[Rfam]
RNA: RT-2 RNA
RNA sequence: GGGUAUAACCUAUUUUAUAGCCGAUACCCUUUCUUUUGAUGCCCUUGCACGGACGCUUCUUGCAUGGCGGGCGUAUGUGCCUAUUCCCGUUUCAUGUGUCAGGGCAAAGCAGAUUAGACGGCACCCUACAAUUUAUCUGUACGAAAGGCGAAUACUUUUAUUAUGAACA
Numbered sequence: 001g002g003g004u005a006u007a008a009c010c011u012a013u014u015u016u017a018u019a020g021c022c023g024a025u026a027c028c029c030u031u032u033c034u035u036u037u038g039a040u041g042c043c044c045u046u047g048c049a050c051g052g053a054c055g056c057u058u059c060u061u062g063c064a065u066g067g068c069g070g071g072c073g074u075a076u077g078u079g080c081c082u083a084u085u086c087c088c089g090u091u092u093c094a095u096g097u098g099u100c101a102g103g104g105c106a107a108a109g110c111a112g113a114u115u116a117g118a119c120g121g122c123a124c125c126c127u128a129c130a131a132u133u134u135a136u137c138u139g140u141a142c143g144a145a146a147g148g149c150g151a152a153u154a155c156u157u158u159u160a161u162u163a164u165g166a167a168c169a
Stems, first nucleotide, its partner, number of pairs: 001022002004019005032148007040141001041105005047099004055063002066091006109140005115135001116127002